RNA sequence: AAUAAACGCUAGGGGAGCCUCACGGCUGAGAAUAUAUCGCGGUAUCAUGAUAUUAACCCUCAUUACUUGAUUCGGGUCAUUCCGACGUAGGGAAGCAGAUUUCUUUCUAC
Numbered sequence: 001a002a003u004a005a006a007c008g009c010u011a012g013g014g015g016a017g018c019c020u021c022a023c024g025g026c027u028g029a030g031a032a033u034a035u036a037u038c039g040c041g042g043u044a045u046c047a048u049g050a051u052a053u054u055a056a057c058c059c060u061c062a063u064u065a066c067u068u069g070a071u072u073c074g075g076g077u078c079a080u081u082c083c084g085a086c087g088u089a090g091g092g093a094a095g096c097a098g099a100u101u102u103c104u105u106u107c108u109a110c
Stems, first nucleotide, its partner, number of pairs: 008096003011060004016054001017026003034053006066091004072085004

Record summary
A member of the RNA family "TPP riboswitch aptamer (THI element)" from Parasporobacterium paucivorans, 110 nucleotides long.